[Rfam]
mir-16 microRNA precursor family: a 79-nucleotide RNA from Chiloscyllium punctatum. The source organism's lineage runs through Eukaryota, Bilateria, Gnathostomata, Galeoidea and Chiloscyllium. The family's consensus secondary structure was predicted with PFOLD. Its family is annotated with RISC complex and miRNA-mediated post-transcriptional gene silencing in the Gene Ontology.

RNA sequence: GCCAUAUUGGAGCAGCACACGCAAUAUUGGCAAAAUAGUAUUGGAACCUGCCAAUAUUUAUGUGCUGCUAAAGUAGAGU
Dot-bracket structure: ((..(((...((((((((....((((((((....................))))))))...))))))))...)))..))